[Rfam]
RNA sequence: AGCAACAAUGAUGAGUUCUUACAGACCUGUAAUGAUUUGCGAAUAUGAUCGCAUCUUUUUGAACAUCUAAGGGACUGAGUUCUG
Numbered sequence: 001a002g003c004a005a006c007a008a009u010g011a012u013g014a015g016u017u018c019u020u021a022c023a024g025a026c027c028u029g030u031a032a033u034g035a036u037u038u039g040c041g042a043a044u045a046u047g048a049u050c051g052c053a054u055c056u057u058u059u060u061g062a063a064c065a066u067c068u069a070a071g072g073g074a075c076u077g078a079g080u081u082c083u084g
Base pairs, nucleotide, nucleotide: 002083004081005080006079

This 84-nucleotide sequence from Rosa chinensis belongs to the Rfam family "Small nucleolar RNA SNORD25". Taxonomically the source falls in Rosa (Eukaryota, Euphyllophyta, fabids, Rosoideae). The literature on the family includes a 2001 paper in Nucleic Acids Res by Qu et al., "Identification of 10 novel snoRNA gene clusters from Arabidopsis thaliana". Rfam links the family to the GO terms RNA processing and nucleolus. The base pairs follow the family's consensus structure, which was predicted with PFOLD.